Shown here is a 76-nucleotide sequence from Alligator mississippiensis, a member of the family "Mammalian CPEB3 ribozyme". A search with the family's covariance model found it, with a score of 38 bits. The family's consensus secondary structure is taken from published work.
RNA sequence: GUUGCAAAUUCAAGACCAUAGUGGAAGUGGUCACAGUGUGGCCUUGUCAGAUAUCAGCAAAUCUGCAAAUUCUGCU
Number, nucleotide and partner (000 for none) at each position: 001g000002u000003u000004g000005c000006a000007a000008a000009u000010u000011c000012a044013a000014g043015a000016c041017c040018a000019u000020a076021g075022u074023g073024g072025a071026a070027g039028u038029g037030g000031u000032c000033a000034c000035a000036g000037u029038g028039u027040g017041g016042c000043c014044u012045u000046g000047u000048c065049a064050g063051a062052u061053a000054u059055c000056a000057g000058c000059a054060a000061a052062u051063c050064u049065g048066c000067a000068a000069a000070u026071u025072c024073u023074g022075c021076u020